Overview:
Lysine riboswitch aptamer: a 170-nucleotide RNA from Jeotgalibacillus sp. R-1-5s-1. Pairs were carried over by alignment from the consensus structure, which is taken from published work.

RNA sequence: CGAUGGGGUAGAGGUGCAGUGUUCAAGAGUAAGCUGUGUGAGGAUGACAACGUUGAUCACAGGUGAAAGGGGAUGUCUGCCGAAAUGGUAAUAAUCGGUCAAAGAUAUUAUCAUUGGGGUUAUCUUUAACAUGGAUAACACUCUCUUGCCGCAGAAACACUACGUUUUUG
Numbered sequence: 001c002g003a004u005g006g007g008g009u010a011g012a013g014g015u016g017c018a019g020u021g022u023u024c025a026a027g028a029g030u031a032a033g034c035u036g037u038g039u040g041a042g043g044a045u046g047a048c049a050a051c052g053u054u055g056a057u058c059a060c061a062g063g064u065g066a067a068a069g070g071g072g073a074u075g076u077c078u079g080c081c082g083a084a085a086u087g088g089u090a091a092u093a094a095u096c097g098g099u100c101a102a103a104g105a106u107a108u109u110a111u112c113a114u115u116g117g118g119g120u121u122a123u124c125u126u127u128a129a130c131a132u133g134g135a136u137a138a139c140a141c142u143c144u145c146u147u148g149c150c151g152c153a154g155a156a157a158c159a160c161u162a163c164g165u166u167u168u169u170g
Stems, first nucleotide, its partner, number of pairs: 006165001008163004016080004021074004032064001034062005084115010095104001116142002119139007144155002
The match comes from Rfam's covariance-model search (84 bits). NCBI's taxonomy places the organism under Bacteria, Bacillati, Bacilli, Caryophanaceae, Jeotgalibacillus.